[Rfam]
A member of the RNA family "MIR5070 microRNA precursor family" from Brachypodium distachyon, 116 nucleotides long. Clan: MIR2863 microRNA precursor clan. The source organism's lineage runs through Eukaryota, Streptophyta, Streptophytina, Magnoliopsida and Brachypodium. Rfam links the family to the GO terms RISC complex and miRNA-mediated post-transcriptional gene silencing. The family has 2 seed sequences and 266 matches in Rfam 15.1.
RNA sequence: CAGGGUACCCUUUGACACUCCUUAGUUCAACCAAAUGAACUAAAAUUUCAAAAUAACACAAUUUUUUGAAAAACUAGUUCAUUUGUUUGAACUAAGGAGGACUAAAGGAUAUCCUG
Numbered sequence: 001c002a003g004g005g006u007a008c009c010c011u012u013u014g015a016c017a018c019u020c021c022u023u024a025g026u027u028c029a030a031c032c033a034a035a036u037g038a039a040c041u042a043a044a045a046u047u048u049c050a051a052a053a054u055a056a057c058a059c060a061a062u063u064u065u066u067u068g069a070a071a072a073a074c075u076a077g078u079u080c081a082u083u084u085g086u087u088u089g090a091a092c093u094a095a096g097g098a099g100g101a102c103u104a105a106a107g108g109a110u111a112u113c114c115u116g
Stems, first nucleotide, its partner, number of pairs: 002115006009108006018099013032085011